Annotation:
A member of the RNA family "Alphaproteobacterial sRNA BjrC1505" from Methylorubrum extorquens, 148 nucleotides long. Pairs were carried over by alignment from the consensus structure. NCBI's taxonomy places the organism under Bacteria, Pseudomonadota, Hyphomicrobiales, Methylobacteriaceae, Methylorubrum extorquens. A reference for the family is Madhugiri et al. (2012), "Small RNAs of the Bradyrhizobium/Rhodopseudomonas lineage and their analysis", RNA Biol. It scores 64 bits against the family's covariance model.
RNA sequence: CCGGGCUCUUAACGCGGCGUUAACCUUUCCGUUCUACAAAGAGGCACAUCCAGAUUGUCUGGAUCCUGAUUGGGAUCUCUUUCCAGUCUGCUUGAUGCCUCCCUGUAAGACUCACGAAAGCCGCUCCUCCUGGGGCGGCUUCUUUUUU
Numbered sequence: 001c002c003g004g005g006c007u008c009u010u011a012a013c014g015c016g017g018c019g020u021u022a023a024c025c026u027u028u029c030c031g032u033u034c035u036a037c038a039a040a041g042a043g044g045c046a047c048a049u050c051c052a053g054a055u056u057g058u059c060u061g062g063a064u065c066c067u068g069a070u071u072g073g074g075a076u077c078u079c080u081u082u083c084c085a086g087u088c089u090g091c092u093u094g095a096u097g098c099c100u101c102c103c104u105g106u107a108a109g110a111c112u113c114a115c116g117a118a119a120g121c122c123g124c125u126c127c128u129c130c131u132g133g134g135g136c137g138g139c140u141u142c143u144u145u146u147u148u
Base pairs, nucleotide, nucleotide: 001044002043005015006014017037021036022035026031048064049063050062051061068088069087070086071085072084073083095106096105097104116143118141119140120139121138122137123136124135125134126133